[Rfam]
RNA sequence: AAAAAGGCUCUUUUUAGAGCCACCCAGGUCCCUAUGAAAGAGUUGU
Numbered sequence: 001a002a003a004a005a006g007g008c009u010c011u012u013u014u015u016a017g018a019g020c021c022a023c024c025c026a027g028g029u030c031c032c033u034a035u036g037a038a039a040g041a042g043u044u045g046u
Stems, first nucleotide, its partner, number of pairs: 006021006
Dot-bracket structure: .....((((((....)))))).........................
RNA: Histone 3' UTR stem-loop